Record summary
A member of the RNA family "HNH endonuclease-associated RNA and ORF (HEARO) RNA" from Ktedonobacter racemifer, 268 nucleotides long. Taxonomically the source falls in Ktedonobacter racemifer (Bacteria, Bacillati, Ktedonobacteria, Ktedonobacter). The family has 139 seed sequences and 952 matches in Rfam 15.1. The literature on the family includes a 2009 paper in Nature by Weinberg et al., "Exceptional structured noncoding RNAs revealed by bacterial metagenome analysis".
[Rfam]
RNA sequence: GUCAUGUACCCCCGCAUCGAAUGCGGGGGCUUGCGAGGGGCGCUCGCGCCGUUCGCAGGCCCGAGACAUGAGCAGACUCAGCCAGGGGAGGAGCAUGCUCCUCCCAUCGGGCUCCGUUGCAAGCGAAUGCGGCACAGCCGAUGUCCAUAGGCACGUUCAGGUGCUUCACCAGCCUGAACCUCUGCGGGGAAGCGUUAAAAGGUGUAGAGGGAGAAGCCAGUGCGCUUUCCAACAAACCGCUUGCACACGUUGUCGAGGUGAGCUUUAC
Numbered sequence: 001g002u003c004a005u006g007u008a009c010c011c012c013c014g015c016a017u018c019g020a021a022u023g024c025g026g027g028g029g030c031u032u033g034c035g036a037g038g039g040g041c042g043c044u045c046g047c048g049c050c051g052u053u054c055g056c057a058g059g060c061c062c063g064a065g066a067c068a069u070g071a072g073c074a075g076a077c078u079c080a081g082c083c084a085g086g087g088g089a090g091g092a093g094c095a096u097g098c099u100c101c102u103c104c105c106a107u108c109g110g111g112c113u114c115c116g117u118u119g120c121a122a123g124c125g126a127a128u129g130c131g132g133c134a135c136a137g138c139c140g141a142u143g144u145c146c147a148u149a150g151g152c153a154c155g156u157u158c159a160g161g162u163g164c165u166u167c168a169c170c171a172g173c174c175u176g177a178a179c180c181u182c183u184g185c186g187g188g189g190a191a192g193c194g195u196u197a198a199a200a201g202g203u204g205u206a207g208a209g210g211g212a213g214a215a216g217c218c219a220g221u222g223c224g225c226u227u228u229c230c231a232a233c234a235a236a237c238c239g240c241u242u243g244c245a246c247a248c249g250u251u252g253u254c255g256a257g258g259u260g261a262g263c264u265u266u267a268c
Stems, first nucleotide, its partner, number of pairs: 002071006010029002012026002015023002030059008075254003080113004116248002118245008151185002155179008163264001165262006187230009199221001201218003205214001